[Rfam]
RNA sequence: UCUGUUGUUCUAUCAACAUAAGCCUACUGGUAUAUGCAAAGAAGUGAUUUGAUGUAUAAAGUAUAAAGCUAUCAGGACAAUGUACUCGGCUCAAAAGUGGAUCAGAAUUGUGAGAGGAAGAUUAGACUACUAGUUUCAUGUGGUCAGAGGU
Numbered sequence: 001u002c003u004g005u006u007g008u009u010c011u012a013u014c015a016a017c018a019u020a021a022g023c024c025u026a027c028u029g030g031u032a033u034a035u036g037c038a039a040a041g042a043a044g045u046g047a048u049u050u051g052a053u054g055u056a057u058a059a060a061g062u063a064u065a066a067a068g069c070u071a072u073c074a075g076g077a078c079a080a081u082g083u084a085c086u087c088g089g090c091u092c093a094a095a096a097g098u099g100g101a102u103c104a105g106a107a108u109u110g111u112g113a114g115a116g117g118a119a120g121a122u123u124a125g126a127c128u129a130c131u132a133g134u135u136u137c138a139u140g141u142g143g144u145c146a147g148a149g150g151u
Stems, first nucleotide, its partner, number of pairs: 003018005028074005033065005087100001089098003101122003108115002126144005

The record is a 151-nucleotide RNA from Orientia tsutsugamushi, which matches "Group II catalytic intron D1-D4-7" in Rfam. The family has 244 seed sequences and 1,296 matches in Rfam 15.1. The pairing is the family consensus, mapped onto this sequence. From the family's description: Group II introns are found in rRNA, tRNA and mRNA of organelles in fungi, plants and protists, and also in mRNA in bacteria.